The record is a 107-nucleotide RNA sequence, which matches "Mycobacterium sRNA ncrMT1302" in Rfam. By type it is a small RNA. The family's consensus secondary structure was predicted with WAR. On this family, see Pelly et al., Gene 2012: "A screen for non-coding RNA in Mycobacterium tuberculosis reveals a cAMP-responsive RNA that is expressed during infection".

RNA sequence: AAGUGACCAAUUCGAAGUGCCGGGGAACGGGGUGAGAGCCGGCCGCGUCGACCCGCAUACGACGGAGUCAGUACGCCCCCUCAGAGUCCUCCGGGCCUGCCCUAUGU
Numbered sequence: 001a002a003g004u005g006a007c008c009a010a011u012u013c014g015a016a017g018u019g020c021c022g023g024g025g026a027a028c029g030g031g032g033u034g035a036g037a038g039c040c041g042g043c044c045g046c047g048u049c050g051a052c053c054c055g056c057a058u059a060c061g062a063c064g065g066a067g068u069c070a071g072u073a074c075g076c077c078c079c080c081u082c083a084g085a086g087u088c089c090u091c092c093g094g095g096c097c098u099g100c101c102c103u104a105u106g107u
Base pairs, nucleotide, nucleotide: 003089005088006087007086020042021041022040023039028034045076046075047074048073053065054064055063093103094102095101